[Rfam]
Nucleotides: 263
Stems, first nucleotide, its partner, number of pairs: 001207003005203001007202005013196001016104002020098005026092003034047004052069001054066003107174003113165003119160002129157001132156005176188004210227005234255003240251002
Number, partner (000 for none) and nucleotide at each position: 001207g002206a003205g004000u005203a006000u007202g008201c009200g010199g011198u012000a013196a014000u015000c016104g017103g018000g019000a020098g021097c022096a023095u024094c025000a026092g027091a028090g029000u030000g031000a032000g033000u034047g035046c036045a037044u038000a039000a040000a041000c042000u043000a044037a045036u046035g047034c048000c049000a050000u051000u052069g053000a054066g055065c056064u057000c058000g059000a060000a061000a062000g063000u064056a065055g066054u067000u068000u069052c070000u071000u072000a073000a074000u075000a076000a077000c078000c079000a080000u081000a082000g083000c084000c085000a086000u087000c088000u089000c090028c091027u092026c093000g094024g095023a096022u097021g098020c099000a100000a101000g102000g103017c104016c105000a106000c107174a108173a109172a110000a111000u112000c113165a114164g115163c116000c117000a118000c119160u120159u121000u122000u123000g124000u125000u126000u127000u128000u129157g130000u131000c132156u133155a134154u135153u136152u137000a138000u139000u140000u141000a142000a143000a144000u145000g146000c147000a148000a149000u150000u151000u152136a153135a154134a155133u156132g157129c158000c159120a160119g161000c162000a163115g164114c165113u166000u167000u168000a169000c170000u171000u172109u173108u174107u175000a176188a177187g178186a179185c180000a181000a182000c183000c184000a185179g186178u187177u188176u189000a190000a191000c192000g193000g194000g195000u196013u197000c198011a199010c200009c201008g202007c203005u204000u205003u206002u207001c208000c209000c210227u211226u212225u213224u214223g215000c216000c217000u218000u219000a220000u221000u222000u223214c224213a225212a226211a227210g228000u229000a230000u231000a232000g233000u234255c235254c236253g237000u238000u239000u240251u241250g242000u243000u244000u245000g246000a247000u248000c249000c250241c251240g252000c253236c254235g255234g256000u257000g258000u259000g260000g261000c262000c263000a

The record is a 263-nucleotide sequence from Legionella waltersii, which matches "Legionella RNA 17" in Rfam. The match comes from Rfam's covariance-model search (190 bits). Rfam classes the family as a small RNA.